[Rfam]
RNA sequence: AUCUCCUGAGCGCGUUCUCCUCCCAUUAGCGCUCAUGAGUGUUCCCCUCUGGAGGUUCAGCCGGAAACGGCACUUCCAAUUGACUCGGCCGGAUCUUUGGAUCCGGCCUUUUUU
Numbered sequence: 001a002u003c004u005c006c007u008g009a010g011c012g013c014g015u016u017c018u019c020c021u022c023c024c025a026u027u028a029g030c031g032c033u034c035a036u037g038a039g040u041g042u043u044c045c046c047c048u049c050u051g052g053a054g055g056u057u058c059a060g061c062c063g064g065a066a067a068c069g070g071c072a073c074u075u076c077c078a079a080u081u082g083a084c085u086c087g088g089c090c091g092g093a094u095c096u097u098u099g100g101a102u103c104c105g106g107c108c109u110u111u112u113u114u
Stems, first nucleotide, its partner, number of pairs: 001040001003039003007035007050078007087108009
This 114-nucleotide RNA from Mesorhizobium australicum belongs to the Rfam family "Alphaproteobacterial ar15". Pairs were carried over by alignment from the consensus structure. By type it is a small RNA. For this family Rfam cites "A survey of sRNA families in alpha-proteobacteria" (del Val et al., RNA Biol, 2012).